[Rfam]
Nucleotides: 119
Stems, first nucleotide, its partner, number of pairs: 003037001005035005013030006043072002046069002049066004054061002091110008
Number, partner (000 for none) and nucleotide at each position: 001000u002000a003037u004000c005035c006034c007033u008032u009031u010000a011000a012000u013030u014029u015028a016027g017026u018025c019000c020000a021000g022000a023000g024000a025018g026017g027016c028015u029014g030013a031009g032008a033007a034006g035005g036000u037003g038000a039000g040000c041000a042000u043072g044071a045000g046069u047068a048000a049066u050065u051064c052063c053000c054061u055060u056000u057000g058000u059000a060055g061054a062000a063052g064051g065050g066049a067000a068047u069046a070000g071044u072043c073000u074000a075000a076000c077000u078000g079000u080000a081000u082000g083000u084000a085000a086000a087000u088000u089000c090000u091110u092109c093108c094107c095106a096105c097104c098103u099000a100000c101000u102000c103098a104097g105096g106095u107094g108093g109092g110091a111000u112000u113000u114000u115000u116000u117000u118000a119000u
Shown here is a 119-nucleotide RNA from Pilibacter termitis, a member of the family "PyrR binding site".
From the family's description: This family represents the PyrR binding site and terminator structure. This RNA structure is found upstream of a variety of genes involved in pyrimidine biosynthesis and transport. The alignment also includes a portion of the antiterminator structure.
Taxonomically the source falls in Pilibacter (Bacteria, Bacillati, Bacillota, Bacilli).